[Rfam]
RNA sequence: CAAAAGACGAUGAAGAGAAGAGUACCCAGGCAGAUACAGCGCAGAGAGCCUCGUGUGGUGAGAAGAGGUCUGGAAGGGCUUGGAGAACAUGGUCUCGGAGUUGCGUGGCCGACCGCCGUCCCGGCAUAGGUCACGACGUGGGCGCACGUCACAGCGCAGGAGUGUGUUUGCACUCCCCAAGGCCGCUUUCGUGAGGAAGCGUGCGAAUCAAGGUGGUACCACGGCGAAUUCCGUCGUCCUUGAG
Numbered sequence: 001c002a003a004a005a006g007a008c009g010a011u012g013a014a015g016a017g018a019a020g021a022g023u024a025c026c027c028a029g030g031c032a033g034a035u036a037c038a039g040c041g042c043a044g045a046g047a048g049c050c051u052c053g054u055g056u057g058g059u060g061a062g063a064a065g066a067g068g069u070c071u072g073g074a075a076g077g078g079c080u081u082g083g084a085g086a087a088c089a090u091g092g093u094c095u096c097g098g099a100g101u102u103g104c105g106u107g108g109c110c111g112a113c114c115g116c117c118g119u120c121c122c123g124g125c126a127u128a129g130g131u132c133a134c135g136a137c138g139u140g141g142g143c144g145c146a147c148g149u150c151a152c153a154g155c156g157c158a159g160g161a162g163u164g165u166g167u168u169u170g171c172a173c174u175c176c177c178c179a180a181g182g183c184c185g186c187u188u189u190c191g192u193g194a195g196g197a198a199g200c201g202u203g204c205g206a207a208u209c210a211a212g213g214u215g216g217u218a219c220c221a222c223g224g225c226g227a228a229u230u231c232c233g234u235c236g237u238c239c240u241u242g243a244g
Stems, first nucleotide, its partner, number of pairs: 007101002015096004026083005037072003048069005104135007137148003165205003169201003210241004221237005